[Rfam]
RNA sequence: GCAACACCUUGUUCGGUGAGGCUUCUGCAUGGACACAGGCCACUGACCUUCCCUGUCGAAAGACACCCCAGGUCAGGACAGGUCUCCCCGGAUUAAGGGGUGACCCCAAGUGGCUGCCCCCAGGGCUACGCCGUGCAGUGCCAAAGCUCUGACGAGGAGGUGUUCG
Numbered sequence: 001g002c003a004a005c006a007c008c009u010u011g012u013u014c015g016g017u018g019a020g021g022c023u024u025c026u027g028c029a030u031g032g033a034c035a036c037a038g039g040c041c042a043c044u045g046a047c048c049u050u051c052c053c054u055g056u057c058g059a060a061a062g063a064c065a066c067c068c069c070a071g072g073u074c075a076g077g078a079c080a081g082g083u084c085u086c087c088c089c090g091g092a093u094u095a096a097g098g099g100g101u102g103a104c105c106c107c108a109a110g111u112g113g114c115u116g117c118c119c120c121c122a123g124g125g126c127u128a129c130g131c132c133g134u135g136c137a138g139u140g141c142c143a144a145a146g147c148u149c150u151g152a153c154g155a156g157g158a159g160g161u162g163u164u165c166g
Base pairs, nucleotide, nucleotide: 005162006161007160008159009158010157011153012152013096015148016147017146020142021141022140025138026137027136028135029134030133031132032131039114040113041112042111043110045074046073047072048071049070054065055064056063057062081105082104083103084102087099088098089097116126117125118124

Rfam assigns this 166-nucleotide RNA sequence from Arthrobacter sp. ERGS1:01 to the family "M-box riboswitch aptamer (ykoK leader)". Rfam 15.1 lists 1,095 matches to the family in 932 species. The source organism's lineage runs through Bacteria, Bacillati, Actinomycetes, Micrococcales and Arthrobacter. For this family Rfam cites "New RNA motifs suggest an expanded scope for riboswitches in bacterial genetic control" (Barrick et al., Proc Natl Acad Sci U S A, 2004). It scores 145 bits against the family's covariance model.